[Rfam]
RNA sequence: GUGCCUACAGCAGUACCAUUUAAAGAGCUAUGACCACGUUGACUGAUAGCUCUGAAAAUGGCGCUGCUGUCUGCAG
Numbered sequence: 001g002u003g004c005c006u007a008c009a010g011c012a013g014u015a016c017c018a019u020u021u022a023a024a025g026a027g028c029u030a031u032g033a034c035c036a037c038g039u040u041g042a043c044u045g046a047u048a049g050c051u052c053u054g055a056a057a058a059u060g061g062c063g064c065u066g067c068u069g070u071c072u073g074c075a076g
Stems, first nucleotide, its partner, number of pairs: 002075003007070003011066003016061006024053008
Source information
A member of the RNA family "mir-458 microRNA precursor family" from Takifugu rubripes, 76 nucleotides long. Lineage of the source: Eukaryota > Ctenosquamata > Euacanthomorphacea > Tetraodontoidei > Takifugu. It scores 68 bits against the family's covariance model. Rfam links the family to the GO terms RISC complex and miRNA-mediated post-transcriptional gene silencing. For this family Rfam cites "A microRNA catalog of the developing chicken embryo identified by a deep sequencing approach" (Glazov et al., Genome Res, 2008). The family's consensus secondary structure was predicted with RNAalifold.